[Rfam]
RNA sequence: GUUGAGGGGAAUGUUGUCUGGUUCGAAAUCGUUCAUAGGGAGGCUGGAAGACCAUCUGAGUGAUUUCGGACCAGGCUUCAUUCCCCUCAAC
Numbered sequence: 001g002u003u004g005a006g007g008g009g010a011a012u013g014u015u016g017u018c019u020g021g022u023u024c025g026a027a028a029u030c031g032u033u034c035a036u037a038g039g040g041a042g043g044c045u046g047g048a049a050g051a052c053c054a055u056c057u058g059a060g061u062g063a064u065u066u067c068g069g070a071c072c073a074g075g076c077u078u079c080a081u082u083c084c085c086c087u088c089a090a091c
Stems, first nucleotide, its partner, number of pairs: 001091013016076006024068003
RNA: mir-166 microRNA precursor family